[Rfam]
RNA: Plastid-rpl16 group II-D1 intron
RNA sequence: AAGAGCGCCGAGUCAAUAAAGACUGAUAAAAUUGACUCAGGAAAA
Numbered sequence: 001a002a003g004a005g006c007g008c009c010g011a012g013u014c015a016a017u018a019a020a021g022a023c024u025g026a027u028a029a030a031a032u033u034g035a036c037u038c039a040g041g042a043a044a045a
Base pairs, nucleotide, nucleotide: 008040010038011037012036013035014034015033016032017031